[Rfam]
RNA sequence: AAUUGAGUUAGAGGUUGCAUGUUUAAUUAGUAACUUGUCAGAAGUAUUUAUGGUACAUAAGUUGAACAAGUGAAAGGUAAAGAUGCCGAAAUAGAUAUAAACCAUAAAUUAUAUCUAUUGGGACAGUUUUCGAAUAGGAACUGUACUGUCACAGAAUGUGAUGUGCUACCUUAUAU
Numbered sequence: 001a002a003u004u005g006a007g008u009u010a011g012a013g014g015u016u017g018c019a020u021g022u023u024u025a026a027u028u029a030g031u032a033a034c035u036u037g038u039c040a041g042a043a044g045u046a047u048u049u050a051u052g053g054u055a056c057a058u059a060a061g062u063u064g065a066a067c068a069a070g071u072g073a074a075a076g077g078u079a080a081a082g083a084u085g086c087c088g089a090a091a092u093a094g095a096u097a098u099a100a101a102c103c104a105u106a107a108a109u110u111a112u113a114u115c116u117a118u119u120g121g122g123a124c125a126g127u128u129u130u131c132g133a134a135u136a137g138g139a140a141c142u143g144u145a146c147u148g149u150c151a152c153a154g155a156a157u158g159u160g161a162u163g164u165g166c167u168a169c170c171u172u173a174u175a176u
Stems, first nucleotide, its partner, number of pairs: 006171002009168003017086004022081004033071006090119011120147002123144008149161005